[Rfam]
Source information
Prion pseudoknot: a 49-nucleotide RNA sequence from Sphenodon punctatus. This family represents a predicted pseudoknot structure found in prion protein mRNA. It has been suggested that the family has a possible effect in prion protein translation. On this family, see Barrette et al., Nucleic Acids Res 2001: "Pseudoknots in prion protein mRNAs confirmed by comparative sequence analysis and pattern searching". The base pairs follow the family's consensus structure, which is taken from published work. Rfam classes the family as a cis-regulatory element. Its family is annotated with translation in the Gene Ontology.
RNA sequence: GCAUGCUGGAGGCUGGGGGCACAAGGGAAAGGGGCAUGCUGGAGGCUGG
Numbered sequence: 001g002c003a004u005g006c007u008g009g010a011g012g013c014u015g016g017g018g019g020c021a022c023a024a025g026g027g028a029a030a031g032g033g034g035c036a037u038g039c040u041g042g043a044g045g046c047u048g049g
Base pairs, nucleotide, nucleotide: 001039002038003037004036005035006034